RNA sequence: AAACUUACCUGGCUGGGAGAAUCUCGCGAUCAAGAAGGCGGGACCUCCAUGGUGAGGCCCGCGUAUUGCACUUUAGCGCAGGCUAACCUGUGUGGCAGCCUCGAGUUGAGGUUAGCCAACAGCUAAAUUUUUUGCGUGUGGGGCUGCGUUCAUUCAUCAUCUAU
Numbered sequence: 001a002a003a004c005u006u007a008c009c010u011g012g013c014u015g016g017g018a019g020a021a022u023c024u025c026g027c028g029a030u031c032a033a034g035a036a037g038g039c040g041g042g043a044c045c046u047c048c049a050u051g052g053u054g055a056g057g058c059c060c061g062c063g064u065a066u067u068g069c070a071c072u073u074u075a076g077c078g079c080a081g082g083c084u085a086a087c088c089u090g091u092g093u094g095g096c097a098g099c100c101u102c103g104a105g106u107u108g109a110g111g112u113u114a115g116c117c118a119a120c121a122g123c124u125a126a127a128u129u130u131u132u133u134g135c136g137u138g139u140g141g142g143g144c145u146g147c148g149u150u151c152a153u154u155c156a157u158c159a160u161c162u163a164u
Stems, first nucleotide, its partner, number of pairs: 012123004016048004023042005049091004054087001056084003061079002064075001093118004097113002100110002139163004143158001145156002148153001